A member of the RNA family "FMN riboswitch aptamer (RFN element)" from Bittarella massiliensis, 145 nucleotides long. It scores 108 bits against the family's covariance model. The organism belongs to Bittarella (ex Durand et al. 2017), within Bacteria.

[Rfam]
RNA sequence: AGUCUGUUUCAGGGCGGGGUGCGAUUCCCCACCGGCGGUGACAGGGCCCUGCCCUGAAGCCCGCGACUCCUCCGGCCCCCGGCCGGCGGACUGAUUCGGUGUGAUUCCGAAGCCGACGGUAUAGUCCGGAUGAGAGAAACGGCGC
Numbered sequence: 001a002g003u004c005u006g007u008u009u010c011a012g013g014g015c016g017g018g019g020u021g022c023g024a025u026u027c028c029c030c031a032c033c034g035g036c037g038g039u040g041a042c043a044g045g046g047c048c049c050u051g052c053c054c055u056g057a058a059g060c061c062c063g064c065g066a067c068u069c070c071u072c073c074g075g076c077c078c079c080c081g082g083c084c085g086g087c088g089g090a091c092u093g094a095u096u097c098g099g100u101g102u103g104a105u106u107c108c109g110a111a112g113c114c115g116a117c118g119g120u121a122u123a124g125u126c127c128g129g130a131u132g133a134g135a136g137a138a139a140c141g142g143c144g145c
Stems, first nucleotide, its partner, number of pairs: 004142007017029003031125002033115002035064004059113002068090002095111005117128003